[Rfam]
RNA: Eukaryotic large subunit ribosomal RNA, nucleotides 424 to 791
RNA sequence: CGGAUAGAGUCGGCGUAUCUAACGUGUAUUCAAACAAUGUGCUGUGGAUAGCUUUGCCUUUUGCUUGCAGAUUGUGGCAGAGGUUUUGUUAUUCCUCGGUGCAGUGUUGCAUUUGCCGUGGUGUGCGUAGAGGCGUCAGAAGUGGAGGUGUGAUCUCAGUUUUGAGGCAGCUUGCUGGUACCCAAUCUGUGUAAGACUUUUCGACCUCGAACGUUUUGGUGCAUGGCUUACGGGCUCGGCUGGGUUCCGAGCUGGAGGUCGGCGGCGGUGCAUGCGACACGUGCUUUCACCUAGUUCGGUCCUUGUCGAGCUCACAUGCGCACUGUGCGUAAAAGCUGGUCAUCUAUGCGACCCGUCUUGAAACACGG
Dot-bracket structure: ((.((((((.(.....(..(((((.(..........................................................).))))))...(..(((((((((....................................................................................................................................................................................................................)))))))))..).......).).))))).))..((((........))))